[Rfam]
RNA: Protozoan signal recognition particle RNA
Organism: Symbiodinium sp. CCMP2592
RNA sequence: CGCCAUGUAAUGGUGGUCUGACUCACGAAGAUCUCAUGCGGGAGACGGGACAGCUAGGGUCCUGCCCUUCAUGUGGAGCUCACCUCCCUUAAGCUUGCAGACUGCAAGGUUGGCACAGAGUAGUCUGUUCUAACCUGGCAGGCAAAGAUUGAGGGAAGGAUCAAGCUGGCAACAGAGCAGGCAAAACUCAACACUGCAAGCACAUGGGAGAGAGUGUGCUCCGG
Dot-bracket structure: ..........(.((((......)))).)....................................((.........((((.(((((.(((...((((((((.((((.(((((((.(((((....))))).))))))).)))).(...).(((((.....(.(....(((....)))....).)....)))))..))))))))....)))))...))).)))).))